[Rfam]
RNA sequence: AAGAAAAUUACGGGAGAGACUGACUGACAGCACCGAAGGAAUAAAUAAUAAUUGGCGCACCCUUUAUUAUGAAGAUCUCAGGUAAACGGACCGUAAUUGGACA
Numbered sequence: 001a002a003g004a005a006a007a008u009u010a011c012g013g014g015a016g017a018g019a020c021u022g023a024c025u026g027a028c029a030g031c032a033c034c035g036a037a038g039g040a041a042u043a044a045a046u047a048a049u050a051a052u053u054g055g056c057g058c059a060c061c062c063u064u065u066a067u068u069a070u071g072a073a074g075a076u077c078u079c080a081g082g083u084a085a086a087c088g089g090a091c092c093g094u095a096a097u098u099g100g101a102c103a
Base pairs, nucleotide, nucleotide: 006098007097008096009095010094011093012092013091020030021029022028032083033082034081035079036078039077040076045070046069047068048067049066050065051064
RNA: Glycine riboswitch aptamer
Organism: Candidatus Enterococcus dunnyi